[Rfam]
Nucleotides: 089
Base pairs, nucleotide, nucleotide: 008089009088011086013084014083015082016081017080018079019078020077021076022075023074024071025070026069027068028066029065030064031063033062034061035060038058039057040056041055
Number, partner (000 for none) and nucleotide at each position: 001000c002000u003000u004000u005000g006000g007000c008089g009088a010000u011086c012000a013084c014083u015082g016081c017080c018079u019078c020077u021076c022075u023074g024071g025070g026069c027068c028066u029065g030064u031063g032000u033062c034061u035060u036000a037000g038058g039057c040056u041055c042000u043000g044000c045000a046000a047000g048000a049000u050000c051000a052000a053000c054000c055041g056040a057039g058038c059000a060035a061034a062033g063031c064030a065029c066028a067000c068027g069026g070025c071024c072000u073000g074023c075022a076021g077020a078019g079018a080017g081016g082015c083014a084013g085000c086011g087000c088009u089008c

About this RNA:
The family of this 89-nucleotide RNA from Canis lupus is "mir-330 microRNA precursor family". The literature on the family includes a 2004 paper in Proc Natl Acad Sci U S A by Kim et al., "Identification of many microRNAs that copurify with polyribosomes in mammalian neurons". Its family is annotated with RISC complex and miRNA-mediated post-transcriptional gene silencing in the Gene Ontology. The family's consensus secondary structure was predicted with RNAalifold. NCBI's taxonomy places the organism under Eukaryota, Teleostomi, Mammalia, Canidae, Canis lupus.